[Rfam]
RNA sequence: UCCGUGGUGACGCGGAAUCUGAAGGAAGUCGGCGGCAAAUCUCCGGUCUGAGGAACACGAACUUCAUAUGAGGCCAGGUAUCAUUGGAUGAGAUUGCUAAACAAAUCAAAGUCCUUACUGCCAAAGGUGAUACAGAGUAAAUGAAGCAGAUAGGUGGAGAGGAAGAAUAUGUG
Numbered sequence: 001u002c003c004g005u006g007g008u009g010a011c012g013c014g015g016a017a018u019c020u021g022a023a024g025g026a027a028g029u030c031g032g033c034g035g036c037a038a039a040u041c042u043c044c045g046g047u048c049u050g051a052g053g054a055a056c057a058c059g060a061a062c063u064u065c066a067u068a069u070g071a072g073g074c075c076a077g078g079u080a081u082c083a084u085u086g087g088a089u090g091a092g093a094u095u096g097c098u099a100a101a102c103a104a105a106u107c108a109a110a111g112u113c114c115u116u117a118c119u120g121c122c123a124a125a126g127g128u129g130a131u132a133c134a135g136a137g138u139a140a141a142u143g144a145a146g147c148a149g150a151u152a153g154g155u156g157g158a159g160a161g162g163a164a165g166a167a168u169a170u171g172u173g
Stems, first nucleotide, its partner, number of pairs: 001016006030171002036165001040160006046151005062146006073138002075135001077133001079132006086114004092107004
RNA: Group II catalytic intron D1-D4-3